[Rfam]
RNA sequence: GCCACGGCUAGAUGUGGGGUAGCUCCCCACACCGAAAAGCAGUUUGCCUUUCCUGCCUGCCGCUGGUUUCUUCUGAAAGG
Number, nucleotide and partner (000 for none) at each position: 001g067002c066003c065004a064005c062006g061007g060008c059009u000010a000011g033012a000013u031014g030015u029016g028017g027018g026019g025020u000021a000022g000023c000024u000025c019026c018027c017028c016029a015030c014031a013032c000033c011034g000035a000036a000037a000038a000039g056040c055041a054042g053043u000044u000045u000046g000047c080048c079049u078050u077051u076052c075053c042054u041055g040056c039057c000058u000059g008060c007061c006062g005063c000064u004065g003066g002067u001068u000069u000070c000071u000072u000073c000074u000075g052076a051077a050078a049079g048080g047
Rfam assigns this 80-nucleotide sequence from Acidovorax temperans to the family "int-alpA RNA". About the family: Acidobacteria (1 example), Planctomycetes (1 example), Proteobacteria. NCBI's taxonomy places the organism under Bacteria, Pseudomonadati, Pseudomonadota, Comamonadaceae, Acidovorax. The family's RNA type in Rfam is small RNA.